[Rfam]
RNA sequence: AAUGUAUGACACCGCUGAUUUUUUAUCCGACGUUAGACCAUUCGUCUUAUUCAAAAAAUGUUUGUAAUUAUCAUUCAUUUUAUUAUGACUUGAUUCGUCAUCAAAUGUUCUUUAAGCAUGACUUAAAUAUUUUUAUAUUUGCACAAAAAAAUUUUGAAUAAAACGAAUGGUCAAACGUUGGUCGAAAAGUCAACGGUGUCAUACAU
Numbered sequence: 001a002a003u004g005u006a007u008g009a010c011a012c013c014g015c016u017g018a019u020u021u022u023u024u025a026u027c028c029g030a031c032g033u034u035a036g037a038c039c040a041u042u043c044g045u046c047u048u049a050u051u052c053a054a055a056a057a058a059u060g061u062u063u064g065u066a067a068u069u070a071u072c073a074u075u076c077a078u079u080u081u082a083u084u085a086u087g088a089c090u091u092g093a094u095u096c097g098u099c100a101u102c103a104a105a106u107g108u109u110c111u112u113u114a115a116g117c118a119u120g121a122c123u124u125a126a127a128u129a130u131u132u133u134u135a136u137a138u139u140u141g142c143a144c145a146a147a148a149a150a151a152u153u154u155u156g157a158a159u160a161a162a163a164c165g166a167a168u169g170g171u172c173a174a175a176c177g178u179u180g181g182u183c184g185a186a187a188a189g190u191c192a193a194c195g196g197u198g199u200c201a202u203a204c205a206u
Stems, first nucleotide, its partner, number of pairs: 027181008036172010047161004